[Rfam]
RNA sequence: UUAUAUUUGCGUGAAGGAUGGAAGCGGCAUCCUUUUUUACAUGCGUUUCCUUUUUUUACUCAUGCCUUAUAAAUAAGCAAACGCAUGUAAAAAAGAUAUAGCAGACAGCCUGACCUUUA
Numbered sequence: 001u002u003a004u005a006u007u008u009g010c011g012u013g014a015a016g017g018a019u020g021g022a023a024g025c026g027g028c029a030u031c032c033u034u035u036u037u038u039a040c041a042u043g044c045g046u047u048u049c050c051u052u053u054u055u056u057u058a059c060u061c062a063u064g065c066c067u068u069a070u071a072a073a074u075a076a077g078c079a080a081a082c083g084c085a086u087g088u089a090a091a092a093a094a095g096a097u098a099u100a101g102c103a104g105a106c107a108g109c110c111u112g113a114c115c116u117u118u119a
Stems, first nucleotide, its partner, number of pairs: 015111003019107002024102002029097003035092014

The record is a 119-nucleotide sequence from Lacinutrix neustonica, which matches "Flavo-1 RNA" in Rfam. The match comes from Rfam's covariance-model search (55 bits). The organism belongs to Lacinutrix, within Bacteria.